Rfam assigns this 115-nucleotide RNA sequence from Lachnospiraceae bacterium KHCPX20 to the family "THF (Tetrahydrofolate) riboswitch aptamer". The organism belongs to Lachnospiraceae, within Bacteria. A search with the family's covariance model found it, with a score of 72 bits. From the family's description: Tetrahydrofolate (THF) riboswitch was first reported for Ames et al. as an RNA motif in 5' untranslated (5'-UTR)regions of folate transport and biosynthesis genes in Firmicutes genomes.
[Rfam]
RNA sequence: AGCAGAGUAGGAAUGAAAGCGUCUGGAGAUAUUCUCCUCUAGUGCCCAUUGAACAGGGAGUUGUCAAUGGGACGAAUAGCCAAGGCUUACGAUUUUGAUUCCGCAUCCCGCUGCU
Numbered sequence: 001a002g003c004a005g006a007g008u009a010g011g012a013a014u015g016a017a018a019g020c021g022u023c024u025g026g027a028g029a030u031a032u033u034c035u036c037c038u039c040u041a042g043u044g045c046c047c048a049u050u051g052a053a054c055a056g057g058g059a060g061u062u063g064u065c066a067a068u069g070g071g072a073c074g075a076a077u078a079g080c081c082a083a084g085g086c087u088u089a090c091g092a093u094u095u096u097g098a099u100u101c102c103g104c105a106u107c108c109c110g111c112u113g114c115u
Stems, first nucleotide, its partner, number of pairs: 001115005010102005016096004020091003042073002045071008056108003060104001078087003